[Rfam]
RNA sequence: GGGCCGGUAGCUCAGUCGGUUAGAGCAAGCCACUCAUAAUGGCUCGGUCGUCGGUUCAAGCCCGACCCGGCCUA
Numbered sequence: 001g002g003g004c005c006g007g008u009a010g011c012u013c014a015g016u017c018g019g020u021u022a023g024a025g026c027a028a029g030c031c032a033c034u035c036a037u038a039a040u041g042g043c044u045c046g047g048u049c050g051u052c053g054g055u056u057c058a059a060g061c062c063c064g065a066c067c068c069g070g071c072c073u074a
Stems, first nucleotide, its partner, number of pairs: 001073007010026004028044005050066005
This 74-nucleotide RNA sequence from Nocardioides terrae belongs to the Rfam family "tRNA".
It scores 67 bits against the family's covariance model.
Rfam classes the family as a transfer RNA.
Lineage of the source: Bacteria > Bacillati > Propionibacteriales > Nocardioidaceae > Nocardioides.
From the family's description: Transfer RNA (tRNA) molecules are approximately 80 nucleotides in length.